[Rfam]
RNA sequence: CCGACGCGGAUACCCUGGGGUCGUUUUUCCGGGCUCUGUUCGGGUGGUGACAGGAGCGCAGGUCUCUGCCCCAUGACGUACAGUCCCUUUCCACAGUGUCGGAAAUGAAGCCGGGGCCCUGAGUCCGCGCCUGCAUAAUCCUACUGCUUCUCAGAGUCCCUCAGACCGUGACUGAGGAGACAUGCAGGAAACAGUU
Numbered sequence: 001c002c003g004a005c006g007c008g009g010a011u012a013c014c015c016u017g018g019g020g021u022c023g024u025u026u027u028u029c030c031g032g033g034c035u036c037u038g039u040u041c042g043g044g045u046g047g048u049g050a051c052a053g054g055a056g057c058g059c060a061g062g063u064c065u066c067u068g069c070c071c072c073a074u075g076a077c078g079u080a081c082a083g084u085c086c087c088u089u090u091c092c093a094c095a096g097u098g099u100c101g102g103a104a105a106u107g108a109a110g111c112c113g114g115g116g117c118c119c120u121g122a123g124u125c126c127g128c129g130c131c132u133g134c135a136u137a138a139u140c141c142u143a144c145u146g147c148u149u150c151u152c153a154g155a156g157u158c159c160c161u162c163a164g165a166c167c168g169u170g171a172c173u174g175a176g177g178a179g180a181c182a183u184g185c186a187g188g189a190a191a192c193a194g195u196u
Stems, first nucleotide, its partner, number of pairs: 001102007008041005014033003018028002044094004053086003056081001058079002061074001130188007147179006156166003